bZIP non canonical Hac1/Xbp1 intron: a 72-nucleotide RNA sequence from Sphaerosporella brunnea.
The family has 112 seed sequences and 1,325 matches in Rfam 15.1.
Taxonomically the source falls in Sphaerosporella (Eukaryota, Ascomycota, Pezizales, Pyronemataceae).
Rfam describes the family as follows. bZIP intron RNA is a non-canonical intron that was first reported in HAC1 gene in yeast and XBP1 gene in Metazoa.
It scores 42 bits against the family's covariance model.
The base pairs follow the family's consensus structure, which was predicted with RNAfold.
RNA sequence: GAGUCCUCCUGCAUGACACAUCAACCUGCUGAGUUGAUGUGCGACCUGCCGUGUCUGCAGGAGACUGGACUG
Dot-bracket structure: .(((((..(((((......((((((.......))))))....(((.......))))))))......))))).